[Rfam]
RNA sequence: CUUAUUAACGUAAGUAAUAACACACACGUAUCGACACAUACGCCGGGGUGCCUUGGGAAUUCGUUCUGCAGGGUCGGUUGUAUGGGAUACGUGGAGGCAUAAC
Numbered sequence: 001c002u003u004a005u006u007a008a009c010g011u012a013a014g015u016a017a018u019a020a021c022a023c024a025c026a027c028g029u030a031u032c033g034a035c036a037c038a039u040a041c042g043c044c045g046g047g048g049u050g051c052c053u054u055g056g057g058a059a060u061u062c063g064u065u066c067u068g069c070a071g072g073g074u075c076g077g078u079u080g081u082a083u084g085g086g087a088u089a090c091g092u093g094g095a096g097g098c099a100u101a102a103c
Stems, first nucleotide, its partner, number of pairs: 025093008037084005042078004050074005
RNA: t44 RNA